The family of this 99-nucleotide RNA sequence from an Acetobacteraceae bacterium is "traJ-II RNA". The family has 47 seed sequences and 174 matches in Rfam 15.1. The family's RNA type in Rfam is cis-regulatory element.
RNA sequence: GGGCAGGACAGGUGAAGUAGGCCUACACUUUGUUUUGCCACUUCACACGCUUAUUUAUUCGCCCUUUGGGCUCAACAUAUUAUCCUGCUCUGCGAGGCG
Dot-bracket structure: ((((((((...((((((..((...(........)...)).)))))).....(((......((((...)))).....)))...)))))))).........

Background: A search with the family's covariance model found it, with a score of 62 bits. NCBI's taxonomy places the organism under Bacteria, Pseudomonadati, Pseudomonadota, Acetobacterales, Acetobacteraceae.